The record is a 282-nucleotide RNA sequence from Molossus molossus, which matches "Mason-Pfizer monkey virus packaging signal" in Rfam. It scores 100 bits against the family's covariance model. This family represents a group of sequences that are related to the Mason-Pfizer monkey virus (MPMV) packaging signal. The packaging signal is located in the 5' UTR and is required for specific RNA encapsidation. Rfam classes the family as a cis-regulatory element.
RNA sequence: UGGCACCCAACGUGGGGCUCGAGCACGGGGGAUCCAGUGAAGGACGCUGCUUGAGUGGCCGGCAGAAAGGAAAGCAAAGGAAAAGAAAGUAAAAGAAAAGAGGGAAUGACGUGGGAACCUGCUGCGUCUGCACCCCUCGGGUAAGUGAACGGCGAUUAUGGGUCAAGCAUUGAGCCAAGAUAAGAUGUUCGUUGAAGGACUAGGAAAGGCUAUAAAGGCACGAGGAGUAAAGGUAAAAAUUAAGCAUUUGUGUCAGUAUUUUGAUUAAAGAAGUUUGUCCUU
Numbered sequence: 001u002g003g004c005a006c007c008c009a010a011c012g013u014g015g016g017g018c019u020c021g022a023g024c025a026c027g028g029g030g031g032a033u034c035c036a037g038u039g040a041a042g043g044a045c046g047c048u049g050c051u052u053g054a055g056u057g058g059c060c061g062g063c064a065g066a067a068a069g070g071a072a073a074g075c076a077a078a079g080g081a082a083a084a085g086a087a088a089g090u091a092a093a094a095g096a097a098a099a100g101a102g103g104g105a106a107u108g109a110c111g112u113g114g115g116a117a118c119c120u121g122c123u124g125c126g127u128c129u130g131c132a133c134c135c136c137u138c139g140g141g142u143a144a145g146u147g148a149a150c151g152g153c154g155a156u157u158a159u160g161g162g163u164c165a166a167g168c169a170u171u172g173a174g175c176c177a178a179g180a181u182a183a184g185a186u187g188u189u190c191g192u193u194g195a196a197g198g199a200c201u202a203g204g205a206a207a208g209g210c211u212a213u214a215a216a217g218g219c220a221c222g223a224g225g226a227g228u229a230a231a232g233g234u235a236a237a238a239a240u241u242a243a244g245c246a247u248u249u250g251u252g253u254c255a256g257u258a259u260u261u262u263g264a265u266u267a268a269a270g271a272a273g274u275u276u277g278u279c280c281u282u
Stems, first nucleotide, its partner, number of pairs: 006031003012026003100138002102135002107132001110126005146165003150162001153160002171214002174210003221263005227257002231249004267282002270279002